Shown here is a 77-nucleotide RNA sequence from Indicator maculatus, a member of the family "Small nucleolar RNA SNORD20". Rfam classes the family as a C/D-box small nucleolar RNA. About the family: U20 is a C/D box small nucleolar RNA that is encoded in intron 11 of the nucleolin gene in human, mouse and rat. The family has 13 seed sequences and 573 matches in Rfam 15.1. The match comes from Rfam's covariance-model search (84 bits). Gene Ontology terms of the family: RNA processing and nucleolus. The base pairs follow the family's consensus structure.

[Rfam]
RNA sequence: UGGAGAUGAUGAUUGAUUAUCUGAGAUGCUGAUGAAACCAUUGUCAAAAUCCUCUAGAUAGUCAAGUGCUGAUCCAG
Numbered sequence: 001u002g003g004a005g006a007u008g009a010u011g012a013u014u015g016a017u018u019a020u021c022u023g024a025g026a027u028g029c030u031g032a033u034g035a036a037a038c039c040a041u042u043g044u045c046a047a048a049a050u051c052c053u054c055u056a057g058a059u060a061g062u063c064a065a066g067u068g069c070u071g072a073u074c075c076a077g
Stems, first nucleotide, its partner, number of pairs: 001076004